[Rfam]
This 417-nucleotide RNA from Zophobihabitans entericus belongs to the Rfam family "cspA thermoregulator". Pairs were carried over by alignment from the consensus structure, which is taken from published work. On this family, see Giuliodori et al., Mol Cell 2010: "The cspA mRNA is a thermosensor that modulates translation of the cold-shock protein CspA". The organism belongs to Zophobihabitans, within Bacteria. It is annotated as an RNA thermoregulator.
RNA sequence: UUCUGCUUGUUAUAACAUUGGGUAUAAGUAGUUCCUGUUUAAACAUAAUCUUCGAUUUAGCUUUAACAGAUCUCUUCUUGGAUGUUCUUAUAAGUAAAUGCUAAUCUUAUGGCCAAGAGAGCCGUUCCGGCUAAUAUUAAUUAUCGUUAGGAAGUUUAGUAAUGACUAAGAAAACUGGCCACGUUAAGUGGUUCAAUGAAAGCAAAGGUUUUGGUUUUAUCACUCCAGCUGAUGGAAGCAAAGAUGUAUUCGUACAUUUCUCAGCAAUCGCUGGUGAUGGUUUCAAAACUUUAGCUGAAGGCCAACAAGUAGAGUUCGCUAUCCAGGAUAGCCCUCGUGGUCCAGCAGCGGCUGAAGUUGUUGUAAUCUAACAUCAGUUUGAAUGAUUAAAACCCGUCUUAUGGCGGGUUUUGUUGU
Numbered sequence: 001u002u003c004u005g006c007u008u009g010u011u012a013u014a015a016c017a018u019u020g021g022g023u024a025u026a027a028g029u030a031g032u033u034c035c036u037g038u039u040u041a042a043a044c045a046u047a048a049u050c051u052u053c054g055a056u057u058u059a060g061c062u063u064u065a066a067c068a069g070a071u072c073u074c075u076u077c078u079u080g081g082a083u084g085u086u087c088u089u090a091u092a093a094g095u096a097a098a099u100g101c102u103a104a105u106c107u108u109a110u111g112g113c114c115a116a117g118a119g120a121g122c123c124g125u126u127c128c129g130g131c132u133a134a135u136a137u138u139a140a141u142u143a144u145c146g147u148u149a150g151g152a153a154g155u156u157u158a159g160u161a162a163u164g165a166c167u168a169a170g171a172a173a174a175c176u177g178g179c180c181a182c183g184u185u186a187a188g189u190g191g192u193u194c195a196a197u198g199a200a201a202g203c204a205a206a207g208g209u210u211u212u213g214g215u216u217u218u219a220u221c222a223c224u225c226c227a228g229c230u231g232a233u234g235g236a237a238g239c240a241a242a243g244a245u246g247u248a249u250u251c252g253u254a255c256a257u258u259u260c261u262c263a264g265c266a267a268u269c270g271c272u273g274g275u276g277a278u279g280g281u282u283u284c285a286a287a288a289c290u291u292u293a294g295c296u297g298a299a300g301g302c303c304a305a306c307a308a309g310u311a312g313a314g315u316u317c318g319c320u321a322u323c324c325a326g327g328a329u330a331g332c333c334c335u336c337g338u339g340g341u342c343c344a345g346c347a348g349c350g351g352c353u354g355a356a357g358u359u360g361u362u363g364u365a366a367u368c369u370a371a372c373a374u375c376a377g378u379u380u381g382a383a384u385g386a387u388u389a390a391a392a393c394c395c396g397u398c399u400u401a402u403g404g405c406g407g408g409u410u411u412u413g414u415u416g417u
Stems, first nucleotide, its partner, number of pairs: 004021001008017002028226001030224003042218002047216004051206002060203004066197001069194002072191001074154007089143001091109004121131003156178005231323005243251002256310004264303001265301001269294001273290001276289001278287001329344001331342001334340002345364008367382002371378002388413011